[Rfam]
RNA sequence: GGGCUCGUAGCUCAGCUAGGCAGAGCACCGGGCUUUUAACGCCUGCGGCGUUGCUGCUGCGUGCAGAAACCCGAUGGCCGAGGGUUCAAAUCCCUUCGAGCCCG
Number, nucleotide and partner (000 for none) at each position: 001g103002g102003g101004c100005u099006c098007g097008u000009a000010g026011c025012u024013c023014a000015g000016c000017u000018a000019g000020g000021c000022a000023g013024a012025g011026c010027a000028c000029c073030g072031g071032g070033c000034u000035u000036u000037u000038a000039a000040c000041g000042c000043c000044u000045g000046c000047g000048g000049c000050g000051u000052u000053g000054c000055u000056g000057c000058u000059g000060c000061g000062u000063g000064c000065a000066g000067a000068a000069a000070c032071c031072c030073g029074a000075u000076g000077g000078c000079c000080g096081a095082g094083g093084g092085u000086u000087c000088a000089a000090a000091u000092c084093c083094c082095u081096u080097c007098g006099a005100g004101c003102c002103c001104g000